[Rfam]
RNA sequence: UCGGGUCUUUUUGCGGUCUGGGCUUGCUGUCCCUGCCGCAGCCAGGAAGCCCUUACCCCAAAAAGCAUCCG
Numbered sequence: 001u002c003g004g005g006u007c008u009u010u011u012u013g014c015g016g017u018c019u020g021g022g023c024u025u026g027c028u029g030u031c032c033c034u035g036c037c038g039c040a041g042c043c044a045g046g047a048a049g050c051c052c053u054u055a056c057c058c059c060a061a062a063a064a065g066c067a068u069c070c071g
Stems, first nucleotide, its partner, number of pairs: 007065007015057003020052004025047001027045002
Overview
This 71-nucleotide sequence from Certhia brachydactyla belongs to the Rfam family "mir-129 microRNA precursor family". It scores 82 bits against the family's covariance model. For this family Rfam cites "Identification of tissue-specific microRNAs from mouse" (Lagos-Quintana et al., Curr Biol, 2002). NCBI's taxonomy places the organism under Eukaryota, Craniata, Gnathostomata, Neognathae, Certhia.